[Rfam]
RNA sequence: ACCUCCGCUUCGCUCGUUGAACUCUUUCUGUGAGUAUAUCUCCGAUGAACGGUGGAGGAAGA
Numbered sequence: 001a002c003c004u005c006c007g008c009u010u011c012g013c014u015c016g017u018u019g020a021a022c023u024c025u026u027u028c029u030g031u032g033a034g035u036a037u038a039u040c041u042c043c044g045a046u047g048a049a050c051g052g053u054g055g056a057g058g059a060a061g062a
Stems, first nucleotide, its partner, number of pairs: 002058007014045003019040001021035004
A member of the RNA family "Trypanosomatid snoRNA TB8Cs2H1" from Trypanosoma congolense, 62 nucleotides long. The family's consensus secondary structure was predicted with WAR. The family's RNA type in Rfam is H/ACA-box small nucleolar RNA. Rfam 15.1 lists 52 matches to the family in 17 species. The organism belongs to Trypanosoma congolense, within Eukaryota.